[Rfam]
RNA: U1 spliceosomal RNA
Organism: Pan paniscus
RNA sequence: UUACCUUCGUCCUAAAAAAUUUUUAAACCAUGAUCAUGAAGGUGGUUUUCCCAGGGCGAGGCUCAUCCAUUGCACUCCGAAUGUGCUGACCCCUGUGGUUUCCCCAAAUGUGGGAAAAUGAGUUGCAUAAUUUGUGGUAGUGGGGGUCUGCGUUCGUGCUUUCCCCUU
Numbered sequence: 001u002u003a004c005c006u007u008c009g010u011c012c013u014a015a016a017a018a019a020u021u022u023u024u025a026a027a028c029c030a031u032g033a034u035c036a037u038g039a040a041g042g043u044g045g046u047u048u049u050c051c052c053a054g055g056g057c058g059a060g061g062c063u064c065a066u067c068c069a070u071u072g073c074a075c076u077c078c079g080a081a082u083g084u085g086c087u088g089a090c091c092c093c094u095g096u097g098g099u100u101u102c103c104c105c106a107a108a109u110g111u112g113g114g115a116a117a118a119u120g121a122g123u124u125g126c127a128u129a130a131u132u133u134g135u136g137g138u139a140g141u142g143g144g145g146g147u148c149u150g151c152g153u154u155c156g157u158g159c160u161u162u163c164c165c166c167u168u
Stems, first nucleotide, its partner, number of pairs: 013125003019049001027046005053094004058090001060087003064083003068079001096121001098119001099117003103113002142167005150159003